small nucleolar RNA snoR135: a 149-nucleotide sequence from Papaver nudicaule. The source organism's lineage runs through Eukaryota, Viridiplantae, Tracheophyta, Euphyllophyta and Papaver. Pairs were carried over by alignment from the consensus structure, which was predicted with RNAalifold. The literature on the family includes a 2009 paper in Nucleic Acids Res by Chen and Wu, "Mining small RNA sequencing data: a new approach to identify small nucleolar RNAs in Arabidopsis". A search with the family's covariance model found it, with a score of 109 bits.

[Rfam]
RNA sequence: AAAGCAGAGAUUGUGUGUAUCGGAAUUUUGCUUAUUUCUUGCAAUUUAAUCCGAAAGAUUUCUCUGCGAAAUUAAUUUUUUGGUGAAGGUGGGCAGUUGAGUUUCAUUCUAACCUAUUGAUUCAUUCAACAAUCAUUUUCUCCACAUUU
Numbered sequence: 001a002a003a004g005c006a007g008a009g010a011u012u013g014u015g016u017g018u019a020u021c022g023g024a025a026u027u028u029u030g031c032u033u034a035u036u037u038c039u040u041g042c043a044a045u046u047u048a049a050u051c052c053g054a055a056a057g058a059u060u061u062c063u064c065u066g067c068g069a070a071a072u073u074a075a076u077u078u079u080u081u082g083g084u085g086a087a088g089g090u091g092g093g094c095a096g097u098u099g100a101g102u103u104u105c106a107u108u109c110u111a112a113c114c115u116a117u118u119g120a121u122u123c124a125u126u127c128a129a130c131a132a133u134c135a136u137u138u139u140c141u142c143c144a145c146a147u148u149u
Base pairs, nucleotide, nucleotide: 004067005066006065007064008063009062010061016043017042018041019040082143083142085140086139087138088137089136090135091134092133096130097129098128099127